A member of the RNA family "MIR2619 microRNA precursor family" from Medicago truncatula, 251 nucleotides long. The organism belongs to Medicago, within Eukaryota. It scores 119 bits against the family's covariance model.

[Rfam]
RNA sequence: AAUUAGCCCAUUAAGUUUACCCCUUUUUACACUUUUGGCCCCCCAGACCAAUUUUGACUGGGUCAAUGCAUACAUGGCACCCAUAUCAUUUUAAUUAUUAGGCUUAAUUGCAGUUUUGACCCCCUAAGAAAAAAGAAAGUUACACGUGGCACGUCACUUUAAGUGAUGUGGGUGCCACGCAUGCAUUGAUUUAAUCAAAAUUGGUAUGGGGGGCUAGAAGUGCAAAAUGGGGUAAACUUAGGAGGUUGAUU
Numbered sequence: 001a002a003u004u005a006g007c008c009c010a011u012u013a014a015g016u017u018u019a020c021c022c023c024u025u026u027u028u029a030c031a032c033u034u035u036u037g038g039c040c041c042c043c044c045a046g047a048c049c050a051a052u053u054u055u056g057a058c059u060g061g062g063u064c065a066a067u068g069c070a071u072a073c074a075u076g077g078c079a080c081c082c083a084u085a086u087c088a089u090u091u092u093a094a095u096u097a098u099u100a101g102g103c104u105u106a107a108u109u110g111c112a113g114u115u116u117u118g119a120c121c122c123c124c125u126a127a128g129a130a131a132a133a134a135g136a137a138a139g140u141u142a143c144a145c146g147u148g149g150c151a152c153g154u155c156a157c158u159u160u161a162a163g164u165g166a167u168g169u170g171g172g173u174g175c176c177a178c179g180c181a182u183g184c185a186u187u188g189a190u191u192u193a194a195u196c197a198a199a200a201u202u203g204g205u206a207u208g209g210g211g212g213g214c215u216a217g218a219a220g221u222g223c224a225a226a227a228u229g230g231g232g233u234a235a236a237c238u239u240a241g242g243a244g245g246u247u248g249a250u251u
Stems, first nucleotide, its partner, number of pairs: 001251002004248005012240012025227004030222016073179001075177017